[Rfam]
RNA: Lysine riboswitch aptamer
RNA sequence: AAGUGAGGUAGAGGCGCGAAGAUCAUCAGUACGCAAUCAGAGGUUGAUGAGGUCCGGUGACGAUUGCGGAAAGGGAAAUUCGCCGAAACUUAAGAGAAUCUCAUUUUCUCGGGAGUUGGUUCUGCUAUUGAAGAAAUACAGGACUGUCAUAUAGGCAACUAUAUGGAGGGCUAUCUUGCGU
Numbered sequence: 001a002a003g004u005g006a007g008g009u010a011g012a013g014g015c016g017c018g019a020a021g022a023u024c025a026u027c028a029g030u031a032c033g034c035a036a037u038c039a040g041a042g043g044u045u046g047a048u049g050a051g052g053u054c055c056g057g058u059g060a061c062g063a064u065u066g067c068g069g070a071a072a073g074g075g076a077a078a079u080u081c082g083c084c085g086a087a088a089c090u091u092a093a094g095a096g097a098a099u100c101u102c103a104u105u106u107u108c109u110c111g112g113g114a115g116u117u118g119g120u121u122c123u124g125c126u127a128u129u130g131a132a133g134a135a136a137u138a139c140a141g142g143a144c145u146g147u148c149a150u151a152u153a154g155g156c157a158a159c160u161a162u163a164u165g166g167a168g169g170g171c172u173a174u175c176u177u178g179c180g181u
Base pairs, nucleotide, nucleotide: 006176007175008174009173010172011171016083017082018081019080020079023076024075032068033067034066035065036064037063038062087117088116089115090114091113094110095109096108097107098106118145119144120143121142122141123140124139126138127137128136129135147166148165149164150163151162152161153160